Rfam assigns this 104-nucleotide RNA from Alkalihalophilus pseudofirmus to the family "SAM riboswitch aptamer (S box leader)".
Lineage of the source: Bacteria > Bacillota > Caryophanales > Alkalihalophilus > Alkalihalophilus pseudofirmus.

[Rfam]
RNA sequence: CACUUAUCCAGAGAGACCGAGGGAACAGGCCCGACGACGUCCAGCAACCGCCGCAAGGAAAGGUGCUCCUUCCUGCAGAAUCAUUGUAUUCUGAAAGAUAAGCG
Numbered sequence: 001c002a003c004u005u006a007u008c009c010a011g012a013g014a015g016a017c018c019g020a021g022g023g024a025a026c027a028g029g030c031c032c033g034a035c036g037a038c039g040u041c042c043a044g045c046a047a048c049c050g051c052c053g054c055a056a057g058g059a060a061a062g063g064u065g066c067u068c069c070u071u072c073c074u075g076c077a078g079a080a081u082c083a084u085u086g087u088a089u090u091c092u093g094a095a096a097g098a099u100a101a102g103c104g
Stems, first nucleotide, its partner, number of pairs: 001104001003102006013042001015041003021032003026075004043067004048063002051058002071096001076093006